The record is a 91-nucleotide RNA from Caenorhabditis brenneri, which matches "mir-46/mir-47/mir-281 microRNA precursor family" in Rfam. Lineage of the source: Eukaryota > Opisthokonta > Nematoda > Rhabditoidea > Caenorhabditis. The base pairs follow the family's consensus structure, which was predicted with RNAalifold. The literature on the family includes a 2001 paper in Science by Lau et al., "An abundant class of tiny RNAs with probable regulatory roles in Caenorhabditis elegans". The match comes from Rfam's covariance-model search (66 bits). Gene Ontology terms of the family: RISC complex and miRNA-mediated post-transcriptional gene silencing.
RNA sequence: CUUGAGUGAAGCUGAAGAGAGCCGUCUAUUGACAGUUCGUCUCUGUUCAGUCAGGUACUGUCAUGGAGUCGCUCUCUUCAGAUGAUCUCUU
Numbered sequence: 001c002u003u004g005a006g007u008g009a010a011g012c013u014g015a016a017g018a019g020a021g022c023c024g025u026c027u028a029u030u031g032a033c034a035g036u037u038c039g040u041c042u043c044u045g046u047u048c049a050g051u052c053a054g055g056u057a058c059u060g061u062c063a064u065g066g067a068g069u070c071g072c073u074c075u076c077u078u079c080a081g082a083u084g085a086u087c088u089c090u091u
Stems, first nucleotide, its partner, number of pairs: 014079005020073003025067004031062003035058002